[Rfam]
RNA sequence: AACGAAUUCUCGCAAUAUUUUUACUUUCUUUUUUAUUCUCUGCUGAUUUGGAGGCGGAUUUUACGUGUAAAAACGAAAGUGAAAAUCCUAAGCCUCCCAAACGGGAGGCUUUUUUGUU
Numbered sequence: 001a002a003c004g005a006a007u008u009c010u011c012g013c014a015a016u017a018u019u020u021u022u023a024c025u026u027u028c029u030u031u032u033u034u035a036u037u038c039u040c041u042g043c044u045g046a047u048u049u050g051g052a053g054g055c056g057g058a059u060u061u062u063a064c065g066u067g068u069a070a071a072a073a074c075g076a077a078a079g080u081g082a083a084a085a086u087c088c089u090a091a092g093c094c095u096c097c098c099a100a101a102c103g104g105g106a107g108g109c110u111u112u113u114u115u116g117u118u
Base pairs, nucleotide, nucleotide: 018085019084020083021082022081023080024079025078026077027076028075030073031072033070034069035068036067039052040051041050042049053064056061090111091110092109093108094107095106096105097104098103

This 118-nucleotide RNA sequence from Shewanella gelidii belongs to the Rfam family "Phenylalanine leader peptide". The base pairs follow the family's consensus structure, which was predicted with CMfinder. The literature on the family includes a 1978 paper in Proc Natl Acad Sci U S A by Zurawski et al., "Nucleotide sequence of the leader region of the phenylalanine operon of Escherichia coli". The family's RNA type in Rfam is cis-regulatory leader. Its family is annotated with cellular amino acid metabolic process in the Gene Ontology.